[Rfam]
RNA: mir-731 microRNA precursor family
RNA sequence: GGAUGUUGUUCUGGAAUGACACGUUUUCUCCCGGAUCGCCAGACUCAUGAUUCGCCACCGGGAACUUCGUGUCAGCCAAGAAUGGCAUCC
Numbered sequence: 001g002g003a004u005g006u007u008g009u010u011c012u013g014g015a016a017u018g019a020c021a022c023g024u025u026u027u028c029u030c031c032c033g034g035a036u037c038g039c040c041a042g043a044c045u046c047a048u049g050a051u052u053c054g055c056c057a058c059c060g061g062g063a064a065c066u067u068c069g070u071g072u073c074a075g076c077c078a079a080g081a082a083u084g085g086c087a088u089c090c
Stems, first nucleotide, its partner, number of pairs: 001090011017074007029063006036057001038055002042053002